A member of the RNA family "mir-9229 microRNA precursor family" from Myotis myotis, 76 nucleotides long. The family's consensus secondary structure was predicted with RNAalifold. Its family is annotated with RISC complex and miRNA-mediated post-transcriptional gene silencing in the Gene Ontology.
[Rfam]
RNA sequence: GAGACACCCUUACGGGGCAGGACUUGCUUCAGUGGGGCUUUGGUGCUCACUGAGCCUUCCCCUUGAGUGUGUCUUU
Dot-bracket structure: (((((((.((((.((((.(.(.(.....((((((((((....)).))))))))).)).)))).)))).))))))).